[Rfam]
Shown here is a 142-nucleotide RNA from Syntrophaceticus schinkii, a member of the family "Molybdenum/Tungsten riboswitch aptamer (Moco RNA motif)".
Rfam links the family to the GO terms tungstate binding, regulation of gene expression and molybdenum ion binding.
The match comes from Rfam's covariance-model search (78 bits).
RNA sequence: AAAUAGUAAUGUUUUCGAGCCUUCUAUCCUACAGCCUUAUGGCUAUGGAUAAUCGGACGAAAGGUGCGUUUAUCGCUCCCCAGGGUAUAGCUGGAAACGGCUGUGCCUCCCGUGUUUGGAAAGAAGAUAUGGCAUGUUUAUC
Number, nucleotide and partner (000 for none) at each position: 001a000002a000003a000004u000005a000006g133007u000008a000009a000010u000011g128012u127013u126014u125015u124016c123017g000018a000019g000020c056021c055022u000023u000024c000025u051026a050027u049028c048029c047030u000031a000032c000033a044034g043035c042036c041037u000038u000039a000040u000041g036042g035043c034044u033045a000046u000047g029048g028049a027050u026051a025052a000053u000054c000055g021056g020057a000058c000059g080060a000061a000062a077063g076064g000065u000066g000067c000068g000069u000070u000071u000072a000073u000074c000075g000076c063077u062078c000079c000080c059081c000082a000083g108084g107085g106086u105087a104088u103089a102090g101091c100092u099093g098094g000095a000096a000097a000098c093099g092100g091101c090102u089103g088104u087105g086106c085107c084108u083109c119110c118111c000112g000113u000114g000115u000116u000117u000118g110119g109120a000121a000122a000123g016124a015125a014126g013127a012128u011129a000130u000131g000132g000133c006134a000135u000136g000137u000138u000139u000140a000141u000142c000